[Rfam]
mir-344 microRNA precursor family: a 71-nucleotide RNA sequence from Mus musculus. For this family Rfam cites "Mammalian microRNAs: experimental evaluation of novel and previously annotated genes" (Chiang et al., Genes Dev, 2010). The match comes from Rfam's covariance-model search (66 bits). Taxonomically the source falls in Mus (Eukaryota, Vertebrata, Tetrapoda, Glires).
RNA sequence: UGAUCAGUCGGGUUGCUGGCUAUAUUACAGGAUUUAUCUGGUCCUGGCUAUAACCAAAGCAUGACUGUAUG
Numbered sequence: 001u002g003a004u005c006a007g008u009c010g011g012g013u014u015g016c017u018g019g020c021u022a023u024a025u026u027a028c029a030g031g032a033u034u035u036a037u038c039u040g041g042u043c044c045u046g047g048c049u050a051u052a053a054c055c056a057a058a059g060c061a062u063g064a065c066u067g068u069a070u071g
Base pairs, nucleotide, nucleotide: 007065008064009063012060013059014058017056018055019054021052022051023050024049028040029039030038031037